A member of the RNA family "U12 minor spliceosomal RNA" from Acipenser ruthenus, 151 nucleotides long. Lineage of the source: Eukaryota > Deuterostomia > Euteleostomi > Acipenserini > Acipenser. Its Rfam clan is "U2 clan".

RNA sequence: AUGCCUUAAACUGAUGAGUAAGGAAAAUAACGUCCCGGGGUGACGCCCGGGCCUUCGCUGAAAUUGCGUAUUAAUUUUUGAGCGGGUCCAGGUCGUGCUCUGGGUGAUCUGCUUACUUUGCAGAAUGCCUCUGGGUAAAGCGAUCUGCCUG
Numbered sequence: 001a002u003g004c005c006u007u008a009a010a011c012u013g014a015u016g017a018g019u020a021a022g023g024a025a026a027a028u029a030a031c032g033u034c035c036c037g038g039g040g041u042g043a044c045g046c047c048c049g050g051g052c053c054u055u056c057g058c059u060g061a062a063a064u065u066g067c068g069u070a071u072u073a074a075u076u077u078u079u080g081a082g083c084g085g086g087u088c089c090a091g092g093u094c095g096u097g098c099u100c101u102g103g104g105u106g107a108u109c110u111g112c113u114u115a116c117u118u119u120g121c122a123g124a125a126u127g128c129c130u131c132u133g134g135g136u137a138a139a140g141c142g143a144u145c146u147g148c149c150u151g
Stems, first nucleotide, its partner, number of pairs: 004023005032053001034051006054070001056068003083151005090146007099135002102130005108124005

Gene Ontology terms of the family: pre-mRNA branch point binding, mRNA branch site recognition and U12 snRNP. The match comes from Rfam's covariance-model search (124 bits). For this family Rfam cites "Pre-mRNA splicing: the discovery of a new spliceosome doubles the challenge" (Tarn and Steitz, Trends Biochem Sci, 1997).